The record is a 110-nucleotide RNA sequence from Manihot esculenta, which matches "MIR398 microRNA precursor family" in Rfam. A search with the family's covariance model found it, with a score of 87 bits. The organism belongs to Manihot, within Eukaryota. Its family is annotated with RISC complex and miRNA-mediated post-transcriptional gene silencing in the Gene Ontology. On this family, see Jones-Rhoades and Bartel, Mol Cell 2004: "Computational identification of plant microRNAs and their targets, including a stress-induced miRNA".
RNA sequence: AGGAUUCCUACAGGAGCGACCUGAGAUCACAUGUGGACACCCUAAGAUCUUCCCUUAUCUUCCAAGGAUUGUGUUCUUAUGUGUUCUCAGGUCGCCCCUGCCGGGCUUCC
Numbered sequence: 001a002g003g004a005u006u007c008c009u010a011c012a013g014g015a016g017c018g019a020c021c022u023g024a025g026a027u028c029a030c031a032u033g034u035g036g037a038c039a040c041c042c043u044a045a046g047a048u049c050u051u052c053c054c055u056u057a058u059c060u061u062c063c064a065a066g067g068a069u070u071g072u073g074u075u076c077u078u079a080u081g082u083g084u085u086c087u088c089a090g091g092u093c094g095c096c097c098c099u100g101c102c103g104g105g106c107u108u109c110c
Stems, first nucleotide, its partner, number of pairs: 007104002011100004016095004023088004028083005